[Rfam]
RNA sequence: AAAACAAAGCAGAAGUUCCGCUUCUCACCUUGCGACAGGGUCAGUAAGGUUAAUAUGCAGGUAUUUUAAAUUUCUUGUAUAUCUAUGCGGAUAGGCUUGCUCUAUCCGCUUUUAUUUUUACUU
Numbered sequence: 001a002a003a004a005c006a007a008a009g010c011a012g013a014a015g016u017u018c019c020g021c022u023u024c025u026c027a028c029c030u031u032g033c034g035a036c037a038g039g040g041u042c043a044g045u046a047a048g049g050u051u052a053a054u055a056u057g058c059a060g061g062u063a064u065u066u067u068a069a070a071u072u073u074c075u076u077g078u079a080u081a082u083c084u085a086u087g088c089g090g091a092u093a094g095g096c097u098u099g100c101u102c103u104a105u106c107c108g109c110u111u112u113u114a115u116u117u118u119u120a121c122u123u
Base pairs, nucleotide, nucleotide: 011025012024013023014022015021016020027050028049029048032045033044035041036040087109088108089107090106091105092104093103094102095101
The family of this 123-nucleotide RNA from Oxobacter pfennigii is "Ribosomal protein L20 leader".
The match comes from Rfam's covariance-model search (72 bits).